[Rfam]
RNA sequence: AUGCCCAUUAACGCGCAAUUAAGGUUCAAUUGCUUAUGGUGAGGGUGUCCGGAUCUUCUGGAUGUGCAGAGUGGUUCUCCCUCUGUUUGACGCCUCCCUGUUAACUUUUGAGAGCCGUUUCGACGGCUCUUUUUUC
Numbered sequence: 001a002u003g004c005c006c007a008u009u010a011a012c013g014c015g016c017a018a019u020u021a022a023g024g025u026u027c028a029a030u031u032g033c034u035u036a037u038g039g040u041g042a043g044g045g046u047g048u049c050c051g052g053a054u055c056u057u058c059u060g061g062a063u064g065u066g067c068a069g070a071g072u073g074g075u076u077c078u079c080c081c082u083c084u085g086u087u088u089g090a091c092g093c094c095u096c097c098c099u100g101u102u103a104a105c106u107u108u109u110g111a112g113a114g115c116c117g118u119u120u121c122g123a124c125g126g127c128u129c130u131u132u133u134u135u136c
Stems, first nucleotide, its partner, number of pairs: 002043001004041001006013001020036004048062004069083003073080002089102004110131009
Overview:
The record is a 136-nucleotide RNA sequence from Arsenicitalea aurantiaca, which matches "Alphaproteobacterial sRNA BjrC1505" in Rfam. The family's RNA type in Rfam is small RNA. NCBI's taxonomy places the organism under Bacteria, Pseudomonadati, Hyphomicrobiales, Devosiaceae, Arsenicitalea. A reference for the family is Madhugiri et al. (2012), "Small RNAs of the Bradyrhizobium/Rhodopseudomonas lineage and their analysis", RNA Biol. It scores 54 bits against the family's covariance model.